Background
This 83-nucleotide RNA from Photobacterium profundum belongs to the Rfam family "Fluoride riboswitch aptamer (crcB RNA motif)". NCBI's taxonomy places the organism under Bacteria, Pseudomonadati, Gammaproteobacteria, Photobacterium, Photobacterium profundum. It is one of the family's seed sequences.
[Rfam]
RNA sequence: AUUAUGACGGGAGAUGAUGAUCCUCCUUUAACUGCCUUACUGAAGUUUACCCUUCUUAUAAGGAUGAUGACGUCUAACAACAU
Numbered sequence: 001a002u003u004a005u006g007a008c009g010g011g012a013g014a015u016g017a018u019g020a021u022c023c024u025c026c027u028u029u030a031a032c033u034g035c036c037u038u039a040c041u042g043a044a045g046u047u048u049a050c051c052c053u054u055c056u057u058a059u060a061a062g063g064a065u066g067a068u069g070a071c072g073u074c075u076a077a078c079a080a081c082a083u
Stems, first nucleotide, its partner, number of pairs: 010026004016074004021069001035063005